[Rfam]
RNA sequence: AUUUGACACGGUCCGACGGUGGCCAGUCUUGGCCCCACAUUCGGACGCGGUGCGAUGAC
Numbered sequence: 001a002u003u004u005g006a007c008a009c010g011g012u013c014c015g016a017c018g019g020u021g022g023c024c025a026g027u028c029u030u031g032g033c034c035c036c037a038c039a040u041u042c043g044g045a046c047g048c049g050g051u052g053c054g055a056u057g058a059c
Stems, first nucleotide, its partner, number of pairs: 007049001009047002012044002015042002018035002021033001023031001025029001
Dot-bracket structure: ......(.((.((.((.((.(.(.(...).).))).....)))).)).)..........
Notes
The record is a 59-nucleotide sequence from a Rhodospirillales bacterium, which matches "Selenocysteine insertion sequence 3" in Rfam. The family has 24 seed sequences and 640 matches in Rfam 15.1. Taxonomically the source falls in Rhodospirillales (Bacteria, Pseudomonadati, Pseudomonadota, Alphaproteobacteria). On this family, see Huttenhofer et al., RNA 1996: "Solution structure of mRNA hairpins promoting selenocysteine incorporation in Escherichia coli and their base-specific interaction with special elongation factor SELB".